[Rfam]
RNA sequence: AGUUAAAUCAAAUAGGAUUCUUGUAUAUACUUAGUAAUAUGGUCUAAGAGUUUCUAGCGGGUACCGUAAAUAAACCGGCUACAAGAAUAAUUUGAAGCUUA
Numbered sequence: 001a002g003u004u005a006a007a008u009c010a011a012a013u014a015g016g017a018u019u020c021u022u023g024u025a026u027a028u029a030c031u032u033a034g035u036a037a038u039a040u041g042g043u044c045u046a047a048g049a050g051u052u053u054c055u056a057g058c059g060g061g062u063a064c065c066g067u068a069a070a071u072a073a074a075c076c077g078g079c080u081a082c083a084a085g086a087a088u089a090a091u092u093u094g095a096a097g098c099u100u101a
Base pairs, nucleotide, nucleotide: 018087019086020085021084022083023082024081025080030048031047032046033045034044058077059076060075062073063071